Rfam assigns this 46-nucleotide RNA sequence from Frankineae bacterium MT45 to the family "L31-Actinobacteria ribosomal protein leader". It is annotated as a cis-regulatory leader. A reference for the family is Eckert and Weinberg (2020), "Discovery of 20 novel ribosomal leader candidates in bacteria and archaea", BMC Microbiol. It scores 38 bits against the family's covariance model.

RNA sequence: CCGGCUCUGGUUCACGCCCGCUCAACAUUGAUGGCGACCCAGCGCU
Numbered sequence: 001c002c003g004g005c006u007c008u009g010g011u012u013c014a015c016g017c018c019c020g021c022u023c024a025a026c027a028u029u030g031a032u033g034g035c036g037a038c039c040c041a042g043c044g045c046u
Stems, first nucleotide, its partner, number of pairs: 003046003007042004015036004021030001